Background: The family of this 69-nucleotide RNA is "tRNA".
[Rfam]
RNA sequence: GAGAUGUUAGUAAAACAAUUAGCACGCCUUGUCAAGGCGAAAUAGCUGGUUAGACUCCGGCACAUCUCA
Numbered sequence: 001g002a003g004a005u006g007u008u009a010g011u012a013a014a015a016c017a018a019u020u021a022g023c024a025c026g027c028c029u030u031g032u033c034a035a036g037g038c039g040a041a042a043u044a045g046c047u048g049g050u051u052a053g054a055c056u057c058c059g060g061c062a063c064a065u066c067u068c069a
Stems, first nucleotide, its partner, number of pairs: 001068007011021003025039004045061005